Description: c-di-GMP-I riboswitch aptamer: an 80-nucleotide RNA from Halalkalibacter suaedae. Rfam 15.1 lists 5,092 matches to the family in 1,772 species. On this family, see Weinberg et al., Nucleic Acids Res 2007: "Identification of 22 candidate structured RNAs in bacteria using the CMfinder comparative genomics pipeline". Clan: c-di-GMP_I riboswitch clan.

RNA sequence: AAUAGUUUUUGGCAAACUAUGUGAAAGCAUAGGACGCAAAGCCACGGGUCUAAACACAGUAUGAUAGCCGGGUUGCAAGA
Dot-bracket structure: ...........((...((((((....))))))...))..((((.((((((....(...)...)))..)))))))......
Numbered sequence: 001a002a003u004a005g006u007u008u009u010u011g012g013c014a015a016a017c018u019a020u021g022u023g024a025a026a027g028c029a030u031a032g033g034a035c036g037c038a039a040a041g042c043c044a045c046g047g048g049u050c051u052a053a054a055c056a057c058a059g060u061a062u063g064a065u066a067g068c069c070g071g072g073u074u075g076c077a078a079g080a
Stems, first nucleotide, its partner, number of pairs: 012037002017032006040074004045070003048065003055059001